[Rfam]
RNA sequence: UGAGCGCAUUAUUGUAAGUCACUUUGGACAAAAGCGUCUGCUAAAUGACCCUGU
Numbered sequence: 001u002g003a004g005c006g007c008a009u010u011a012u013u014g015u016a017a018g019u020c021a022c023u024u025u026g027g028a029c030a031a032a033a034g035c036g037u038c039u040g041c042u043a044a045a046u047g048a049c050c051c052u053g054u
Stems, first nucleotide, its partner, number of pairs: 013043001014041003020036001022034004